[Rfam]
RNA sequence: GGAGUUGGCCAGGCAGUCGCUCUGCGCAAGCAGGGAGGAAAGUCCGGGCUUCAUAGGGUAAAGUGCCAGGUAACGCCUGGGGGGCGUGAGCCUACGGAUAGUGCAGCAGAAAGUAAACCGCCUAAGUCUCUCGUAGACCGGUAAGGGUGAAAUGGUGCGGUAAGAGCGCACCGCGUGUGCGGCAACGUAUCACGGCGAUGGUAAACCCCACUUGAAGCAAGACCAAAUAGAGAAGCGGUAACGCAAGUUACAACGUGUGGCCCACACGGCUUCUGGGUAGGUCGCUCGAGGUGCUCGGUGACGAGCAUCCCAGAUGAAUGACUGUCCACGACAGAACCCGGCUUAUCGGCCAACUCCAUUU
Numbered sequence: 001g002g003a004g005u006u007g008g009c010c011a012g013g014c015a016g017u018c019g020c021u022c023u024g025c026g027c028a029a030g031c032a033g034g035g036a037g038g039a040a041a042g043u044c045c046g047g048g049c050u051u052c053a054u055a056g057g058g059u060a061a062a063g064u065g066c067c068a069g070g071u072a073a074c075g076c077c078u079g080g081g082g083g084g085c086g087u088g089a090g091c092c093u094a095c096g097g098a099u100a101g102u103g104c105a106g107c108a109g110a111a112a113g114u115a116a117a118c119c120g121c122c123u124a125a126g127u128c129u130c131u132c133g134u135a136g137a138c139c140g141g142u143a144a145g146g147g148u149g150a151a152a153u154g155g156u157g158c159g160g161u162a163a164g165a166g167c168g169c170a171c172c173g174c175g176u177g178u179g180c181g182g183c184a185a186c187g188u189a190u191c192a193c194g195g196c197g198a199u200g201g202u203a204a205a206c207c208c209c210a211c212u213u214g215a216a217g218c219a220a221g222a223c224c225a226a227a228u229a230g231a232g233a234a235g236c237g238g239u240a241a242c243g244c245a246a247g248u249u250a251c252a253a254c255g256u257g258u259g260g261c262c263c264a265c266a267c268g269g270c271u272u273c274u275g276g277g278u279a280g281g282u283c284g285c286u287c288g289a290g291g292u293g294c295u296c297g298g299u300g301a302c303g304a305g306c307a308u309c310c311c312a313g314a315u316g317a318a319u320g321a322c323u324g325u326c327c328a329c330g331a332c333a334g335a336a337c338c339c340g341g342c343u344u345a346u347c348g349g350c351c352a353a354c355u356c357c358a359u360u361u
Base pairs, nucleotide, nucleotide: 001357002356003355004354005353006352007351008350009349010348011346012326013325014324015323016322017321018320020035021034022033023032024031025030040344041343042342044341045340046339047338048337049217050216051215052214056263057262058261059260061213062212063211064210065209066080067079068078069077070076081095082093083092084091085090096208097207101206102205103202104201118146119145120142121141122140126138127137128136129135154172155171156170157169158168159167173196174194175193176192177191179188180187181186221283222282223281224280231274232273233272234271235270236269254268255267256266257265258264290309291308292307293306294305295304296303297302
Dot-bracket structure: ((((((((((((((((((.((((((....))))))....[[[.[[[[[((((...[[[[.((((((((((.....)))))(((((....)))).)((...((((.............(((((...((((.....)))).)))..)).......((((((.......))))))(((((.(((....)))..)))).)....))..)))))))))))))...((((......((((((.................(((((.]]]]))))))))))).....))))......((((((((....))))))))..........)))))))..........]]]]]]]].).))))))))))....
Description: Rfam assigns this 361-nucleotide sequence from Cycloclasticus sp. symbiont of Poecilosclerida sp. M to the family "Bacterial RNase P class A". A search with the family's covariance model found it, with a score of 327 bits. Rfam classes the family as a ribozyme. The source organism's lineage runs through Bacteria, Gammaproteobacteria, Thiotrichales, Piscirickettsiaceae and Cycloclasticus.